About this RNA
The family of this 180-nucleotide RNA from Arabidopsis thaliana is "MIR831 microRNA precursor family". The source organism's lineage runs through Eukaryota, Viridiplantae, Streptophytina, Camelineae and Arabidopsis. The sequence is in the family's curated seed alignment. Gene Ontology terms of the family: miRNA-mediated post-transcriptional gene silencing and RISC complex.
Nucleotides: 180
Stems, first nucleotide, its partner, number of pairs: 001180003005176002008174005014168007022160004027155007035147009045136004050132009060123001091122005099117008
Number, partner (000 for none) and nucleotide at each position: 001180g002179u003178c004000u005176u006175a007000a008174g009173a010172g011171u012170c013000u014168c015167a016166a017165g018164a019163a020162g021000c022160g023159u024158a025157c026000a027155a028154g029153g030152a031151g032150a033149u034000g035147a036146g037145g038144a039143g040142u041141g042140a043139a044000u045136c046135a047134c048133c049000a050132a051131a052130a053129c054128a055127a056126g057125u058124g059000g060123u061000u062000u063000u064000g065000g066000u067000u068000u069000g070000u071000g072000a073000a074000u075000c076000a077000c078000c079000a080000a081000a082000a083000c084000a085000a086000g087000u088000g089000g090000u091122u092121u093120u094119g095118g096000u097000u098000u099117g100116u101115g102114a103113a104112u105111c106110a107000g108000u109000a110106u111105g112104g113103u114102u115101u116100a117099c118095c119094c120093a121092a122091a123060a124058c125057a126056c127055u128054u129053g130052u131051u132050u133048g134047g135046u136045g137000u138000g139043u140042u141041u142040a143039c144038u145037u146036c147035u148000g149033a150032u151031c152030u153029c154028u155027u156000c157025g158024u159023a160022c161000u162020c163019u164018u165017c166016u167015u168014g169000c170012g171011a172010u173009u174008c175006u176005a177000u178003g179002a180001c